[Rfam]
RNA sequence: CCCUGUUCUCAGGGCGGGGUGCAAUUCCCCACCGGCGGUAUGCGGGCAUGACCCGUAAGCCCGCGAGCGGCGCUUGCAUCGCAGGCGUGUCAGCAGAUCCGGUGAGAUGCCGGAGCCGACGGUCAUAGUCCGGAUGAAAGAGAACGUGU
Number, nucleotide and partner (000 for none) at each position: 001c000002c000003c000004u146005g145006u144007u143008c142009u141010c140011a000012g000013g000014g000015c000016g000017g029018g028019g027020u000021g000022c000023a000024a000025u000026u000027c019028c018029c017030c000031a129032c128033c118034g117035g064036c063037g062038g061039u000040a000041u000042g000043c000044g000045g000046g000047c000048a000049u000050g000051a000052c000053c000054c000055g000056u000057a000058a000059g116060c115061c038062c037063g036064c035065g000066a000067g094068c093069g000070g000071c000072g000073c000074u000075u000076g000077c000078a000079u000080c000081g000082c000083a000084g000085g000086c000087g000088u000089g000090u000091c000092a000093g068094c067095a000096g000097a000098u114099c113100c112101g111102g110103u000104g000105a000106g000107a000108u000109g000110c102111c101112g100113g099114a098115g060116c059117c034118g033119a000120c132121g131122g130123u000124c000125a000126u000127a000128g032129u031130c122131c121132g120133g000134a000135u000136g000137a000138a000139a000140g010141a009142g008143a007144a006145c005146g004147u000148g000149u000
A member of the RNA family "FMN riboswitch aptamer (RFN element)" from Pseudosulfitobacter pseudonitzschiae, 149 nucleotides long. Rfam describes the family as follows. The RFN element is a highly conserved domain that is found frequently in the 5'-untranslated regions of prokaryotic mRNAs that encode for flavin mononucleotide (FMN) biosynthesis and transport proteins.